[Rfam]
RNA: FMN riboswitch aptamer (RFN element)
Organism: Salisediminibacterium beveridgei
RNA sequence: UCAUUUCUUCGGGGUCGGGUGAAAUUCCCAACCGGCGGUGAUAGAGCAAAUGCUUUUAAGUCCGUGACCCGUGAGCAGCAACAAGCUCCCGGUGGAUUUGGUGUAAUUCCAAAGCCGACAGUAGAGUCUGGAUGGGAGAAGAAAUGA
Numbered sequence: 001u002c003a004u005u006u007c008u009u010c011g012g013g014g015u016c017g018g019g020u021g022a023a024a025u026u027c028c029c030a031a032c033c034g035g036c037g038g039u040g041a042u043a044g045a046g047c048a049a050a051u052g053c054u055u056u057u058a059a060g061u062c063c064g065u066g067a068c069c070c071g072u073g074a075g076c077a078g079c080a081a082c083a084a085g086c087u088c089c090c091g092g093u094g095g096a097u098u099u100g101g102u103g104u105a106a107u108u109c110c111a112a113a114g115c116c117g118a119c120a121g122u123a124g125a126g127u128c129u130g131g132a133u134g135g136g137a138g139a140a141g142a143a144a145u146g147a
Stems, first nucleotide, its partner, number of pairs: 003145008017029003031127002033117002035065004060115002069092002097113005119130003